A member of the RNA family "Rhodo-rpoB RNA" from Pseudogemmobacter blasticus, 93 nucleotides long. A search with the family's covariance model found it, with a score of 64 bits.
[Rfam]
RNA sequence: GGUUCGGGAGCUGCCUGACGGGACAGGUGGCAGGUAUGGAACCGCAGGCCCCUCGCCAAUCGGCGCGCCUUUCCGUGGCCCGACGGAGAUGCG
Numbered sequence: 001g002g003u004u005c006g007g008g009a010g011c012u013g014c015c016u017g018a019c020g021g022g023a024c025a026g027g028u029g030g031c032a033g034g035u036a037u038g039g040a041a042c043c044g045c046a047g048g049c050c051c052c053u054c055g056c057c058a059a060u061c062g063g064c065g066c067g068c069c070u071u072u073c074c075g076u077g078g079c080c081c082g083a084c085g086g087a088g089a090u091g092c093g
Base pairs, nucleotide, nucleotide: 001043002042003041004040005039010031011030012029013028014027015026016025017024066093067092068091071088072087073086074085075084